Description:
L17-Actino-Proteobacteria ribosomal protein leader: a 56-nucleotide RNA from Streptomyces sp. KhCrAH-244. Rfam classes the family as a cis-regulatory leader. For this family Rfam cites "Discovery of 20 novel ribosomal leader candidates in bacteria and archaea" (Eckert and Weinberg, BMC Microbiol, 2020). Rfam's curators put it in the seed alignment. NCBI's taxonomy places the organism under Bacteria, Actinomycetota, Kitasatosporales, Streptomycetaceae, Streptomyces.

RNA sequence: CCGCUCGGCGGCCGCCGAGCGGGAACUGACACCGGUACCUGAUACGGCCGGUGCAG
Numbered sequence: 001c002c003g004c005u006c007g008g009c010g011g012c013c014g015c016c017g018a019g020c021g022g023g024a025a026c027u028g029a030c031a032c033c034g035g036u037a038c039c040u041g042a043u044a045c046g047g048c049c050g051g052u053g054c055a056g
Base pairs, nucleotide, nucleotide: 001022002021003020004019005018006017007016008015009014026056027055028054030053031052032051033050034049035048036047